Shown here is a 31-nucleotide sequence from Callorhinchus milii, a member of the family "Iron response element II". Gene Ontology term of the family: response to iron ion. It is annotated as a cis-regulatory element.
[Rfam]
Nucleotides: 031
Base pairs, nucleotide, nucleotide: 001031002030003029004028005027006026007025009024010023011022012021013020014018
Number, partner (000 for none) and nucleotide at each position: 001031a002030a003029g004028u005027u006026a007025u008000c009024g010023g011022g012021a013020a014018c015000a016000g017000a018014g019000a020013u021012u022011c023010c024009c025007a026006u027005a028004a029003u030002u031001u
IRE, TFRC, SLC40A1, SDHB, SLC11A2, CDC42BPA, ACO2, ALAS2_H.SAPIENS, CDC14A, EPAS1, ALAS2, qoxD, Hao1, NDUFS1, transferrin, Aconitate. On this family, see Koeller et al., Proc Natl Acad Sci U S A 1989: "A cytosolic protein binds to structural elements within the iron regulatory region of the transferrin receptor mRNA". It is one of the family's seed sequences. The source organism's lineage runs through Eukaryota, Eumetazoa, Vertebrata, Chimaeriformes and Callorhinchus. The family has 30 seed sequences and 5,197 matches in Rfam 15.1.